[Rfam]
RNA: Small nucleolar RNA snoR144
Organism: Microthlaspi erraticum
RNA sequence: AAGGCAACUUUUUGCCGAGUGAAUCGAACAUCGAUCUCUCUCUUUUUCCCAGUUGCCUAAAUUAUAUAAUUGCCGUGUGAGGAAUAAAUUGAUUGGUUAUGUAAUUGUAAUACAACCUAUCUUUUCCUCUUUGCUGCAACACUC
Numbered sequence: 001a002a003g004g005c006a007a008c009u010u011u012u013u014g015c016c017g018a019g020u021g022a023a024u025c026g027a028a029c030a031u032c033g034a035u036c037u038c039u040c041u042c043u044u045u046u047u048c049c050c051a052g053u054u055g056c057c058u059a060a061a062u063u064a065u066a067u068a069a070u071u072g073c074c075g076u077g078u079g080a081g082g083a084a085u086a087a088a089u090u091g092a093u094u095g096g097u098u099a100u101g102u103a104a105u106u107g108u109a110a111u112a113c114a115a116c117c118u119a120u121c122u123u124u125u126c127c128u129c130u131u132u133g134c135u136g137c138a139a140c141a142c143u144c
Stems, first nucleotide, its partner, number of pairs: 003057007017042003021038002023035004065141001067139001072134002079129005091121003095117004100112001104108001